[Rfam]
RNA sequence: AUGUAGUGUAGCAUGCCCGUUUUGGUGAAAUACUCUGAUGAAUAUUUGUUAUUUAAAUGCUUUUGGGUAACGGGGUGUUACAGA
Numbered sequence: 001a002u003g004u005a006g007u008g009u010a011g012c013a014u015g016c017c018c019g020u021u022u023u024g025g026u027g028a029a030a031u032a033c034u035c036u037g038a039u040g041a042a043u044a045u046u047u048g049u050u051a052u053u054u055a056a057a058u059g060c061u062u063u064u065g066g067g068u069a070a071c072g073g074g075g076u077g078u079u080a081c082a083g084a
Stems, first nucleotide, its partner, number of pairs: 007082008016074006

The record is an 84-nucleotide RNA sequence from Medicago truncatula, which matches "MIR2617 microRNA precursor family" in Rfam. Gene Ontology terms of the family: RISC complex and miRNA-mediated post-transcriptional gene silencing. Taxonomically the source falls in Medicago (Eukaryota, Mesangiospermae, Gunneridae, Trifolieae). It scores 78 bits against the family's covariance model. The family's consensus secondary structure was predicted with RNAalifold.